RNA sequence: GUGGAGCUUCAGCAUGGGUGUUUGACCUUACAACUCGGCAUUGAUCAAUCGUGGUUGUAGAGUCAUGCACCUCUGCCGACUCUCCGG
Numbered sequence: 001g002u003g004g005a006g007c008u009u010c011a012g013c014a015u016g017g018g019u020g021u022u023u024g025a026c027c028u029u030a031c032a033a034c035u036c037g038g039c040a041u042u043g044a045u046c047a048a049u050c051g052u053g054g055u056u057g058u059a060g061a062g063u064c065a066u067g068c069a070c071c072u073c074u075g076c077c078g079a080c081u082c083u084c085c086g087g
Stems, first nucleotide, its partner, number of pairs: 003085004009079002016072006023065004028060004033055003